[Rfam]
The record is a 79-nucleotide RNA sequence from Ziziphus jujuba, which matches "Small nucleolar RNA snoR53Y" in Rfam. Lineage of the source: Eukaryota > Mesangiospermae > rosids > Paliureae > Ziziphus jujuba. A reference for the family is Brown et al. (2001), "Multiple snoRNA gene clusters from Arabidopsis", RNA. Rfam 15.1 lists 513 matches to the family in 230 species.
RNA sequence: GUUCCCUGUGAUGCUAUAAUUGGACCAUGCUAAUGCUGAUUGCUGCAUGAUUAAUCCGUUUUAAUAUUCUGAGGGAACU
Numbered sequence: 001g002u003u004c005c006c007u008g009u010g011a012u013g014c015u016a017u018a019a020u021u022g023g024a025c026c027a028u029g030c031u032a033a034u035g036c037u038g039a040u041u042g043c044u045g046c047a048u049g050a051u052u053a054a055u056c057c058g059u060u061u062u063a064a065u066a067u068u069c070u071g072a073g074g075g076a077a078c079u
Base pairs, nucleotide, nucleotide: 001078002077003076004075005074006073007072